[Rfam]
RNA sequence: CAGCAAAAUCAGCUUAGUUUAUUCAUCACGAAUAAAACGGAGGACCCAUAAGUGGGGCGAAUUCCUUUUUGGAAAGAGCAUCUAUCAGCUCUAGCCCGUCAGCUAACUUCGUAGGCAUUGAUAGAAGAUUGA
Number, nucleotide and partner (000 for none) at each position: 001c000002a000003g000004c000005a000006a000007a000008a000009u000010c000011a000012g116013c115014u114015u000016a000017g000018u036019u035020u034021a033022u032023u031024c030025a000026u000027c000028a000029c000030g024031a023032a022033u021034a020035a019036a018037a112038c111039g110040g109041a108042g107043g000044a000045c000046c000047c054048a053049u000050a000051a000052g000053u048054g047055g097056g096057g095058c000059g000060a000061a000062u000063u073064c072065c071066u000067u000068u000069u000070u000071g065072g064073a063074a000075a000076g091077a090078g089079c088080a000081u000082c000083u000084a000085u000086c000087a000088g079089c078090u077091c076092u000093a000094g000095c057096c056097c055098g000099u000100c000101a000102g000103c000104u000105a000106a000107c042108u041109u040110c039111g038112u037113a000114g014115g013116c012117a000118u000119u000120g000121a000122u000123a000124g000125a000126a000127g000128a000129u000130u000131g000132a000